[Rfam]
RNA: Group II catalytic intron D1-D4-1
Organism: Microbulbifer sp. THAF38
RNA sequence: GGCCUAGGUCAGUGAUGAGCAAGGUGAUCAAACAGAGGUUAGCCGACGGCAUAGUAGCCUAAUGCCAAGAUGAAUAGCUUGGACAGGGUGAAGGCC
Numbered sequence: 001g002g003c004c005u006a007g008g009u010c011a012g013u014g015a016u017g018a019g020c021a022a023g024g025u026g027a028u029c030a031a032a033c034a035g036a037g038g039u040u041a042g043c044c045g046a047c048g049g050c051a052u053a054g055u056a057g058c059c060u061a062a063u064g065c066c067a068a069g070a071u072g073a074a075u076a077g078c079u080u081g082g083a084c085a086g087g088g089u090g091a092a093g094g095c096c
Stems, first nucleotide, its partner, number of pairs: 002025001004023002007020001009018003038047003048096003057089003066081004